Nucleotides: 091
Stems, first nucleotide, its partner, number of pairs: 012037002018031005040085004045081003048076003055070006
Number, partner (000 for none) and nucleotide at each position: 001000a002000a003000g004000c005000g006000a007000c008000a009000a010000a011000g012037g013036c014000a015000a016000a017000c018031c019030c020029g021028a022027c023000g024000a025000a026000a027022g028021u029020c030019g031018g032000c033000g034000a035000c036013g037012c038000a039000a040085a041084g042083c043082u044000a045081c046080g047079a048076g049075g050074c051000u052000a053000c054000c055070g056069c057068a058067g059066c060065g061000a062000g063000a064000u065060c066059g067058c068057u069056g070055c071000c072000a073000u074050g075049c076048c077000a078000g079047u080046c081045g082043g083042g084041c085040u086000g087000c088000c089000g090000u091000c

Rfam assigns this 91-nucleotide RNA from Roseisolibacter agri to the family "c-di-GMP-I riboswitch aptamer".
The source organism's lineage runs through Bacteria, Pseudomonadati, Gemmatimonadia, Gemmatimonadales and Roseisolibacter.
From the family's description: GEMM was predicted in a large-scale screen for bacterial structured RNA regulatory elements. Genes associated with GEMM are involved in a diverse array of functions, including chemotaxis regulation, signal transduction, secretion and chitin.